Rfam assigns this 67-nucleotide RNA from Callorhinchus milii to the family "MAT2A 3'UTR stem loop A". On this family, see Parker et al., Genome Res 2011: "New families of human regulatory RNA structures identified by comparative analysis of vertebrate genomes". Lineage of the source: Eukaryota > Opisthokonta > Eumetazoa > Bilateria > Callorhinchus. The match comes from Rfam's covariance-model search (40 bits).

RNA sequence: GUCUUUCUCCCCAGACACUGUCAGUGUAUAAUACAGAGAAGCUACAGAGUCUCUGUGGGAGAAAGGC
Numbered sequence: 001g002u003c004u005u006u007c008u009c010c011c012c013a014g015a016c017a018c019u020g021u022c023a024g025u026g027u028a029u030a031a032u033a034c035a036g037a038g039a040a041g042c043u044a045c046a047g048a049g050u051c052u053c054u055g056u057g058g059g060a061g062a063a064a065g066g067c
Base pairs, nucleotide, nucleotide: 001067002066003065004064008059009058010057012055013054014053015052018047019046023043024042025041026034027033